[Rfam]
RNA: MIR1435 microRNA precursor family
Organism: Oryza meyeriana
RNA sequence: UGACUUUUUUGUAAGUCAAACUUCUUUAAGUUUGACCAAGUUUAUAGAAAAACGUAGUAAUAUUUUCAACACAAAACAAAUAUAACAUAAAAUAUAUUCAAUUGUGGAUAUAAUAAAACUAAUUUGGUGUUGUAGAUGUUGCUACGUUUUUCUAUAAAAAUUUGGUCAAACUUGAAGUUUGACUUAUAAAAAAAGUCA
Numbered sequence: 001u002g003a004c005u006u007u008u009u010u011g012u013a014a015g016u017c018a019a020a021c022u023u024c025u026u027u028a029a030g031u032u033u034g035a036c037c038a039a040g041u042u043u044a045u046a047g048a049a050a051a052a053c054g055u056a057g058u059a060a061u062a063u064u065u066u067c068a069a070c071a072c073a074a075a076a077c078a079a080a081u082a083u084a085a086c087a088u089a090a091a092a093u094a095u096a097u098u099c100a101a102u103u104g105u106g107g108a109u110a111u112a113a114u115a116a117a118a119c120u121a122a123u124u125u126g127g128u129g130u131u132g133u134a135g136a137u138g139u140u141g142c143u144a145c146g147u148u149u150u151u152c153u154a155u156a157a158a159a160a161u162u163u164g165g166u167c168a169a170a171c172u173u174g175a176a177g178u179u180u181g182a183c184u185u186a187u188a189a190a191a192a193a194a195g196u197c198a
Stems, first nucleotide, its partner, number of pairs: 005193005011187014031170005045154008055144003059140007067132002072126004